RNA sequence: AUAAAACUGGGGUUGUAGGGGAUGUAAUCUCCUACUCGCAUUCAGGAAGGUGCCCAGGUUGCAACACAGCCGUCGAAGGAAAC
Numbered sequence: 001a002u003a004a005a006a007c008u009g010g011g012g013u014u015g016u017a018g019g020g021g022a023u024g025u026a027a028u029c030u031c032c033u034a035c036u037c038g039c040a041u042u043c044a045g046g047a048a049g050g051u052g053c054c055c056a057g058g059u060u061g062c063a064a065c066a067c068a069g070c071c072g073u074c075g076a077a078g079g080a081a082a083c
Stems, first nucleotide, its partner, number of pairs: 015035008057071005
RNA: Clostridiales-2 RNA
Organism: Thermotalea metallivorans